[Rfam]
RNA: mir-146 microRNA precursor family
RNA sequence: GUGUGUCCUCAGCUUUGAGAACUGAAUUCCAUGGGUUGUGUCCUUGUGAGACCUGUGAAGUUUAGUUCUUCAGCUGGGAUAUCUCUG
Numbered sequence: 001g002u003g004u005g006u007c008c009u010c011a012g013c014u015u016u017g018a019g020a021a022c023u024g025a026a027u028u029c030c031a032u033g034g035g036u037u038g039u040g041u042c043c044u045u046g047u048g049a050g051a052c053c054u055g056u057g058a059a060g061u062u063u064a065g066u067u068c069u070u071c072a073g074c075u076g077g078g079a080u081a082u083c084u085c086u087g
Stems, first nucleotide, its partner, number of pairs: 008078002011075003018069008033054004